This 131-nucleotide RNA belongs to the Rfam family "Streptomyces-metH RNA". By type it is a small RNA.

RNA sequence: CUCGUCCGUCCCGUGGACGUGCCGACCAUCCGGUGGCGGGCACGGCUACUCUGGCGUGGUGCGCCCAGCGUGGGACGUCUCGCGGGCGCCGUAAAGCCGACAGCCGUCGCAACUGAGGGAGCCCUUUCAUG
Dot-bracket structure: ...........................................................((((.((.(((..........))).))...))))..((.(((....))))).....................
Numbered sequence: 001c002u003c004g005u006c007c008g009u010c011c012c013g014u015g016g017a018c019g020u021g022c023c024g025a026c027c028a029u030c031c032g033g034u035g036g037c038g039g040g041c042a043c044g045g046c047u048a049c050u051c052u053g054g055c056g057u058g059g060u061g062c063g064c065c066c067a068g069c070g071u072g073g074g075a076c077g078u079c080u081c082g083c084g085g086g087c088g089c090c091g092u093a094a095a096g097c098c099g100a101c102a103g104c105c106g107u108c109g110c111a112a113c114u115g116a117g118g119g120a121g122c123c124c125u126u127u128c129a130u131g
Stems, first nucleotide, its partner, number of pairs: 060093004065086002068083003096110002099108003